[Rfam]
RNA sequence: GCUAUGCAACAUCGUAUUCUAAAGACAGUUGGUGGCAUAUGCCGUAAAUCCAACCGAGGAAUGUGCAAUGAUUUUUCUGUGAUACACAGCGCACGAUUCCUAGCGGAUCGUGUUUUUUUAUUGCGAUU
Numbered sequence: 001g002c003u004a005u006g007c008a009a010c011a012u013c014g015u016a017u018u019c020u021a022a023a024g025a026c027a028g029u030u031g032g033u034g035g036c037a038u039a040u041g042c043c044g045u046a047a048a049u050c051c052a053a054c055c056g057a058g059g060a061a062u063g064u065g066c067a068a069u070g071a072u073u074u075u076u077c078u079g080u081g082a083u084a085c086a087c088a089g090c091g092c093a094c095g096a097u098u099c100c101u102a103g104c105g106g107a108u109c110g111u112g113u114u115u116u117u118u119u120a121u122u123g124c125g126a127u128u
Stems, first nucleotide, its partner, number of pairs: 028054005034043003091113009
The record is a 128-nucleotide RNA sequence from Ruminococcus sp. CAG:330, which matches "Ribosomal protein L10 leader" in Rfam.
The source organism's lineage runs through Bacteria, Bacillota, Eubacteriales, Oscillospiraceae and Ruminococcus.
This family is a putative r-protein leader autoregulatory structure found in B. subtilis and other low-GC Gram-positive bacteria. It is located in the 5' untranslated regions of mRNAs encoding ribosomal proteins L10 and L12 (rplJ-rplL). A Rho-independent transcription terminator structure that is probably involved in regulation is included at the 3' end.
The base pairs follow the family's consensus structure, which was predicted with CMfinder.